Purine riboswitch aptamer: a 100-nucleotide RNA sequence from Paenibacillus stellifer. The family's consensus secondary structure is taken from published work. The match comes from Rfam's covariance-model search (62 bits). On this family, see Mandal et al., Cell 2003: "Riboswitches Control Fundamental Biochemical Pathways in Bacillus subtilis and Other Bacteria". NCBI's taxonomy places the organism under Bacteria, Bacillota, Caryophanales, Paenibacillaceae, Paenibacillus.
[Rfam]
RNA sequence: AAGCACAACAACAUCACUAUUCGUAUAAUCCCGGGGAUUGGCCUGGGAGUCUCUACGAGGUCACCAUAAUGACCUGGCUACGAUAUAAAGGGAUGCCGUU
Numbered sequence: 001a002a003g004c005a006c007a008a009c010a011a012c013a014u015c016a017c018u019a020u021u022c023g024u025a026u027a028a029u030c031c032c033g034g035g036g037a038u039u040g041g042c043c044u045g046g047g048a049g050u051c052u053c054u055a056c057g058a059g060g061u062c063a064c065c066a067u068a069a070u071g072a073c074c075u076g077g078c079u080a081c082g083a084u085a086u087a088a089a090g091g092g093a094u095g096c097c098g099u100u
Base pairs, nucleotide, nucleotide: 021083022082023081024080025079029048030047031046032045033044034043035042058075059074060073061072062071063070